[Rfam]
Nucleotides: 073
Base pairs, nucleotide, nucleotide: 001073002072003071004070005069006068013018021060022059023058024056025055028054029053030052034047035046
Number, partner (000 for none) and nucleotide at each position: 001073a002072c003071u004070c005069u006068g007000g008000a009000a010000a011000g012000c013018g014000u015000a016000u017000u018013u019000g020000c021060a022059c023058c024056g025055a026000a027000g028054g029053a030052g031000c032000a033000a034047u035046u036000c037000c038000u039000a040000a041000a042000c043000a044000g045000g046035a047034a048000g049000a050000a051000u052030c053029u054028c055025u056024c057000a058023g059022g060021u061000u062000a063000a064000u065000a066000a067000a068006c069005a070004g071003a072002g073001u
This 73-nucleotide RNA sequence from Alkaliphilus pronyensis belongs to the Rfam family "Glycine riboswitch aptamer".
The base pairs follow the family's consensus structure.
From the family's description: This family represents the bacterial glycine riboswitch.
It scores 42 bits against the family's covariance model.